[Rfam]
Nucleotides: 057
Stems, first nucleotide, its partner, number of pairs: 003055002007051009017041006
Number, partner (000 for none) and nucleotide at each position: 001000c002000u003055g004054a005000u006000a007051g008050c009049c010048c011047c012046g013045c014044g015043g016000c017041g018040c019039u020038g021037u022036c023000g024000g025000a026000c027000c028000c029000c030000c031000g032000a033000c034000c035000u036022g037021g038020c039019a040018g041017c042000u043015u044014c045013g046012c047011g048010g049009g050008g051007c052000a053000u054004u055003c056000c057000a